[Rfam]
RNA sequence: GGCGAUAAACGGCACGCCAACUAGACGUAGCGGACCCGGGGGCAGUACCCGGCGCCUCCACCAACACGCCGGCCGGCGCGGCGCGCGCCGCCGGCCUUCCUCCCGGCUCAGGGGGAUCGAGGGGGGCGAACCAGGAUCGACGCGCGUUGAAAGGCGUGCCUUUCGCUCGGCAGCCCGCCGUGAUCGGGCAUCCCAAGAAGUGCGAACGACAAUCGCGCUCCGGUUGCUGCGGCUGCGUAA
Numbered sequence: 001g002g003c004g005a006u007a008a009a010c011g012g013c014a015c016g017c018c019a020a021c022u023a024g025a026c027g028u029a030g031c032g033g034a035c036c037c038g039g040g041g042g043c044a045g046u047a048c049c050c051g052g053c054g055c056c057u058c059c060a061c062c063a064a065c066a067c068g069c070c071g072g073c074c075g076g077c078g079c080g081g082c083g084c085g086c087g088c089c090g091c092c093g094g095c096c097u098u099c100c101u102c103c104c105g106g107c108u109c110a111g112g113g114g115g116a117u118c119g120a121g122g123g124g125g126g127c128g129a130a131c132c133a134g135g136a137u138c139g140a141c142g143c144g145c146g147u148u149g150a151a152a153g154g155c156g157u158g159c160c161u162u163u164c165g166c167u168c169g170g171c172a173g174c175c176c177g178c179c180g181u182g183a184u185c186g187g188g189c190a191u192c193c194c195a196a197g198a199a200g201u202g203c204g205a206a207c208g209a210c211a212a213u214c215g216c217g218c219u220c221c222g223g224u225u226g227c228u229g230c231g232g233c234u235g236c237g238u239a240a
Stems, first nucleotide, its partner, number of pairs: 001167005014157004026146003030143003036052005053128007168180004

Rfam assigns this 240-nucleotide sequence from Limimonas halophila to the family "permuted transfer-messenger RNA". From the family's description: Bacterial tmRNA, also known as 10Sa RNA or SsrA, is named for its dual tRNA and mRNA-like properties. Its role is to liberate the mRNA from a stalled ribosome. To accomplish this part of the tmRNA is used as a reading frame that ends in a translation stop signal. The base pairs follow the family's consensus structure, which is taken from published work.